The record is a 234-nucleotide RNA from Terribacillus sp. AE2B 122, which matches "T-box leader" in Rfam.
Its family is annotated with tRNA binding in the Gene Ontology.

RNA sequence: ACAACUAUAUUGAUGAAGAUCAUACCUUUGAUCGUGAUUAUCCAAGAGAGCUAGUGGCUGGUGUGAACUAGCAUAAUCCGUCAAAGGGCAGCACUUCUGAAUAGGCAAACUGAAUUGAGUAGGUUUGUCCGGCAUAUGCCCGUUAUGCAUAGCUUCAACGAAGGCUGUCGUGUGUAAGCAGACAGUGAAAAAGGGUGGCACCGCGUGAGUAGAUCCAAGCUUUUCGCCCCUUAC
Number, nucleotide and partner (000 for none) at each position: 001a000002c000003a000004a000005c000006u000007a102008u101009a000010u000011u000012g000013a000014u000015g097016a096017a095018g094019a000020u000021c000022a000023u000024a000025c087026c086027u085028u084029u083030g082031a000032u000033c000034g000035u000036g000037a000038u000039u075040a074041u073042c000043c000044a000045a000046g000047a000048g000049a000050g072051c071052u070053a069054g068055u067056g000057g000058c000059u000060g000061g000062u000063g000064u000065g000066a000067a055068c054069u053070a052071g051072c050073a041074u040075a039076a000077u000078c000079c000080g000081u000082c030083a029084a028085a027086g026087g025088g000089c000090a000091g000092c000093a000094c018095u017096u016097c015098u000099g000100a000101a008102u007103a000104g000105g128106c127107a126108a125109a124110c123111u122112g000113a000114a000115u000116u000117g000118a000119g000120u000121a000122g111123g110124u109125u108126u107127g106128u105129c000130c142131g141132g140133c000134a000135u000136a000137u000138g000139c000140c132141c131142g130143u000144u000145a000146u000147g000148c000149a000150u000151a000152g000153c000154u000155u000156c000157a000158a000159c000160g000161a000162a000163g000164g186165c185166u184167g183168u182169c181170g000171u000172g000173u000174g000175u000176a000177a000178g000179c000180a000181g169182a168183c167184a166185g165186u164187g000188a000189a000190a000191a000192a231193g230194g229195g228196u000197g000198g000199c000200a000201c000202c000203g227204c226205g225206u000207g223208a222209g221210u000211a000212g000213a000214u000215c000216c000217a000218a000219g000220c000221u209222u208223u207224u000225c205226g204227c203228c195229c194230c193231u192232u000233a000234c000